[Rfam]
RNA sequence: CCCGCCGCGGUGCCUGACGGGAAGCGGAGCGCAAACGAGGGCGUCGGCCAUUUUGUGGCUGCUUCCCGUGGGUCGCGGCGGUG
Numbered sequence: 001c002c003c004g005c006c007g008c009g010g011u012g013c014c015u016g017a018c019g020g021g022a023a024g025c026g027g028a029g030c031g032c033a034a035a036c037g038a039g040g041g042c043g044u045c046g047g048c049c050a051u052u053u054u055g056u057g058g059c060u061g062c063u064u065c066c067c068g069u070g071g072g073u074c075g076c077g078g079c080g081g082u083g
Stems, first nucleotide, its partner, number of pairs: 002081007010074001014072002017069011029056003036046003

The family of this 83-nucleotide sequence from Chinchilla lanigera is "mir-632 microRNA precursor family". For this family Rfam cites "Genome-wide comparative analysis of microRNAs in three non-human primates" (Brameier, BMC Res Notes, 2010). Taxonomically the source falls in Chinchilla (Eukaryota, Chordata, Gnathostomata, Dipnotetrapodomorpha). Rfam 15.1 lists 126 matches to the family in 126 species. A search with the family's covariance model found it, with a score of 80 bits.